[Rfam]
RNA sequence: UCGCCCACAAUGGCUCUCACGGUUUCAACACGGAUGCGGUCUUUCUUGUGCCUUGUGUGAGCGGAUACGAAGCACGCUGAAUAGUCCGUCGGUCUCGUACCGAAUCCCUUCCCAGGGGCAUCCUUGUUGGAAUCGUGAUCGGCCCACGCCGAUUGCUUCCACCUUUGGUCUCCUCGCGCUAACCCCGUAGCGUGUGGUUUUUAGCGGGCUAAUAAGCCCGCUUUUUUUCG
Numbered sequence: 001u002c003g004c005c006c007a008c009a010a011u012g013g014c015u016c017u018c019a020c021g022g023u024u025u026c027a028a029c030a031c032g033g034a035u036g037c038g039g040u041c042u043u044u045c046u047u048g049u050g051c052c053u054u055g056u057g058u059g060a061g062c063g064g065a066u067a068c069g070a071a072g073c074a075c076g077c078u079g080a081a082u083a084g085u086c087c088g089u090c091g092g093u094c095u096c097g098u099a100c101c102g103a104a105u106c107c108c109u110u111c112c113c114a115g116g117g118g119c120a121u122c123c124u125u126g127u128u129g130g131a132a133u134c135g136u137g138a139u140c141g142g143c144c145c146a147c148g149c150c151g152a153u154u155g156c157u158u159c160c161a162c163c164u165u166u167g168g169u170c171u172c173c174u175c176g177c178g179c180u181a182a183c184c185c186c187g188u189a190g191c192g193u194g195u196g197g198u199u200u201u202u203a204g205c206g207g208g209c210u211a212a213u214a215a216g217c218c219c220g221c222u223u224u225u226u227u228u229c230g
Stems, first nucleotide, its partner, number of pairs: 005168003018137013032123006038086003042080001048075004053070001055068004089103005106117004139152005172197002175194007203222008
Rfam assigns this 230-nucleotide sequence from Burkholderia gladioli to the family "Burkholderia sRNA Bp1_Cand871_SIPHT". It is annotated as a small RNA. The base pairs follow the family's consensus structure, which was predicted with CMfinder. Its family is annotated with bacterial biofilm matrix in the Gene Ontology. A reference for the family is Sass et al. (2017), "Identification of small RNAs abundant in Burkholderia cenocepacia biofilms reveal putative regulators with a potential role in carbon and iron metabolism", Sci Rep.